[Rfam]
RNA sequence: GUCGGAUACGGAGACAUGCACCCGGUGACCAUUGGUGGGAAAGUCGUGGGUUCGCUGUGCGCAAUAGCGGGCGUGCUGACCAUUGCGUUACCCGUGCCGGUGAUCGUGUCCAAC
Numbered sequence: 001g002u003c004g005g006a007u008a009c010g011g012a013g014a015c016a017u018g019c020a021c022c023c024g025g026u027g028a029c030c031a032u033u034g035g036u037g038g039g040a041a042a043g044u045c046g047u048g049g050g051u052u053c054g055c056u057g058u059g060c061g062c063a064a065u066a067g068c069g070g071g072c073g074u075g076c077u078g079a080c081c082a083u084u085g086c087g088u089u090a091c092c093c094g095u096g097c098c099g100g101u102g103a104u105c106g107u108g109u110c111c112a113a114c
Base pairs, nucleotide, nucleotide: 001114002113004111005110007108008107009106010105011104014101015100018097019096020095021094037077038076040074050062051061
A member of the RNA family "Potassium channel RNA editing signal" from Gasterosteus aculeatus, 114 nucleotides long. Gene Ontology term of the family: adenosine to inosine editing. By type it is a cis-regulatory element. The organism belongs to Gasterosteus, within Eukaryota. This family represents a group of sequences related to the human potassium channel Kv1.1 hairpin element which directs the efficient modification of an adenosine to inosine by an adenosine deaminase acting on RNA (ADAR). It scores 101 bits against the family's covariance model.